[Rfam]
RNA sequence: GACUCGGACUCAUGCGAUUACAACGCCCAAACCUUGUCAGGACCGGAAGGUAGCAGCAAUACGGGAUGCUUGUAAUAGGCGUGAACUCCGGGUCUUU
Numbered sequence: 001g002a003c004u005c006g007g008a009c010u011c012a013u014g015c016g017a018u019u020a021c022a023a024c025g026c027c028c029a030a031a032c033c034u035u036g037u038c039a040g041g042a043c044c045g046g047a048a049g050g051u052a053g054c055a056g057c058a059a060u061a062c063g064g065g066a067u068g069c070u071u072g073u074a075a076u077a078g079g080c081g082u083g084a085a086c087u088c089c090g091g092g093u094c095u096u097u
Stems, first nucleotide, its partner, number of pairs: 004091005010084005017076006026065003034059004042051003
The family of this 97-nucleotide RNA sequence from Pleurocapsa sp. PCC 7327 is "Bacterial small signal recognition particle RNA". Taxonomically the source falls in Pleurocapsa (Bacteria, Bacillati, Cyanobacteriota, Cyanophyceae). Its family is annotated with SRP-dependent cotranslational protein targeting to membrane, signal sequence recognition and signal recognition particle, plasma membrane targeting in the Gene Ontology. The literature on the family includes a 2003 paper in Nucleic Acids Res by Rosenblad et al., "SRPDB: Signal Recognition Particle Database".